[Rfam]
RNA sequence: UUUGUUCCAAUAAAAAAAACAUGAUAACAAUUACAAAUAAUACUUGGUGGUGGAACAAUUUACGUCAAACGUCGUGAACAAAGCACCUGUAGUAUCAUUUUAAACUAUAUAUAAAAGGCUUGUC
Number, nucleotide and partner (000 for none) at each position: 001u000002u000003u000004g000005u000006u000007c000008c000009a000010a000011u000012a000013a000014a000015a000016a000017a000018a000019a000020c000021a000022u000023g000024a000025u000026a000027a000028c000029a000030a000031u000032u000033a000034c000035a000036a100037a099038u000039a000040a095041u094042a093043c092044u091045u000046g000047g088048u000049g087050g086051u085052g084053g000054a000055a000056c000057a000058a000059u080060u000061u078062a072063c071064g070065u000066c000067a000068a000069a000070c064071g063072u062073c000074g000075u000076g000077a000078a061079c000080a059081a000082a000083g000084c052085a051086c050087c049088u047089g000090u000091a044092g043093u042094a041095u040096c000097a000098u000099u037100u036101u000102a000103a000104a000105c000106u000107a000108u000109a000110u000111a000112u000113a000114a000115a000116a000117g000118g000119c000120u000121u000122g000123u000124c000

Source information: Rfam assigns this 124-nucleotide RNA from Flavobacterium restrictum to the family "Bacteroidete tryptophan peptide leader RNA". Gene Ontology terms of the family: S-adenosylmethionine metabolic process and regulation of gene expression. It is annotated as a cis-regulatory leader. The match comes from Rfam's covariance-model search (81 bits). The base pairs follow the family's consensus structure, which is taken from published work.